[Rfam]
RNA sequence: UGGAAGUCUGAUACAUGAGUGCAACCUAGUUAUUGCAUUUGUCACAUUGACUUCCUAGAGAAAAAUCACUUUCUGAUGACUGCAAUCAAUGGAGUAUUGUUUGCAGACAGAUACGAAGUGAACAUUA
Numbered sequence: 001u002g003g004a005a006g007u008c009u010g011a012u013a014c015a016u017g018a019g020u021g022c023a024a025c026c027u028a029g030u031u032a033u034u035g036c037a038u039u040u041g042u043c044a045c046a047u048u049g050a051c052u053u054c055c056u057a058g059a060g061a062a063a064a065a066u067c068a069c070u071u072u073c074u075g076a077u078g079a080c081u082g083c084a085a086u087c088a089a090u091g092g093a094g095u096a097u098u099g100u101u102u103g104c105a106g107a108c109a110g111a112u113a114c115g116a117a118g119u120g121a122a123c124a125u126u127a
Stems, first nucleotide, its partner, number of pairs: 002055006015042004022035003066121007080106003085101001087099002
The family of this 127-nucleotide RNA from Acanthosepion pharaonis is "Small Cajal body specific RNA 8". Rfam classes the family as a small Cajal body RNA. From the family's description: scaRNAs are a specific class of small nuclear RNAs which localise to the Cajal bodies and guide the modification of RNA polymerase II transcribed spliceosomal RNAs U1, U2, U4, U5 and U12. The family has 22 seed sequences and 955 matches in Rfam 15.1. A search with the family's covariance model found it, with a score of 78 bits. Lineage of the source: Eukaryota > Metazoa > Protostomia > Sepiina > Acanthosepion. Gene Ontology terms of the family: RNA processing, nucleolus and Cajal body. The base pairs follow the family's consensus structure, which is taken from published work.